Shown here is a 384-nucleotide RNA from Aeribacillus pallidus, a member of the family "Group I catalytic intron". The match comes from Rfam's covariance-model search (80 bits). Taxonomically the source falls in Aeribacillus (Bacteria, Bacillati, Bacillota, Bacilli).
RNA sequence: CAGCUUGUGUCAAUAAGGGCACACUUCAGUGGCGACACUGUCGGAUAAACCUUGUGAAUUCAGGGGAAGAGGAUAAUGGAGUAAAAAGCGGAAAUGGCAAUUGUAAUCGAAUAAAAGAAAAACAUGUUCUUGUCUCUUAUUCCCAUUAUCUUUCCAACCCUGAGCCAAGCCUCAAAUUUAAGGGAAUCUUCUUCUUAAAUUUGAGGAAGGUGCAGAGACUAUCGAAAUCACUCCAGCAUGAAGCGAGUAAGAGUAGUGUUGGAGGAAGAGAGUAGAGUACACCAAGAUGACAGCAUAUAUUAUCUUGGUGGAAGCGCAAGGGUUCUUAUUCAAUAUCGCAGUUGAAUAAGAAUAUGAUAUAGUCCACCUGUUUGUGAAAAACAG
Numbered sequence: 001c002a003g004c005u006u007g008u009g010u011c012a013a014u015a016a017g018g019g020c021a022c023a024c025u026u027c028a029g030u031g032g033c034g035a036c037a038c039u040g041u042c043g044g045a046u047a048a049a050c051c052u053u054g055u056g057a058a059u060u061c062a063g064g065g066g067a068a069g070a071g072g073a074u075a076a077u078g079g080a081g082u083a084a085a086a087a088g089c090g091g092a093a094a095u096g097g098c099a100a101u102u103g104u105a106a107u108c109g110a111a112u113a114a115a116a117g118a119a120a121a122a123c124a125u126g127u128u129c130u131u132g133u134c135u136c137u138u139a140u141u142c143c144c145a146u147u148a149u150c151u152u153u154c155c156a157a158c159c160c161u162g163a164g165c166c167a168a169g170c171c172u173c174a175a176a177u178u179u180a181a182g183g184g185a186a187u188c189u190u191c192u193u194c195u196u197a198a199a200u201u202u203g204a205g206g207a208a209g210g211u212g213c214a215g216a217g218a219c220u221a222u223c224g225a226a227a228u229c230a231c232u233c234c235a236g237c238a239u240g241a242a243g244c245g246a247g248u249a250a251g252a253g254u255a256g257u258g259u260u261g262g263a264g265g266a267a268g269a270g271a272g273u274a275g276a277g278u279a280c281a282c283c284a285a286g287a288u289g290a291c292a293g294c295a296u297a298u299a300u301u302a303u304c305u306u307g308g309u310g311g312a313a314g315c316g317c318a319a320g321g322g323u324u325c326u327u328a329u330u331c332a333a334u335a336u337c338g339c340a341g342u343u344g345a346a347u348a349a350g351a352a353u354a355u356g357a358u359a360u361a362g363u364c365c366a367c368c369u370g371u372u373u374g375u376g377a378a379a380a381a382c383a384g
Stems, first nucleotide, its partner, number of pairs: 006023006028039003050321004055316002060163006069154004164211002170205001172203001177199008215365001217364005324351011370382002372379002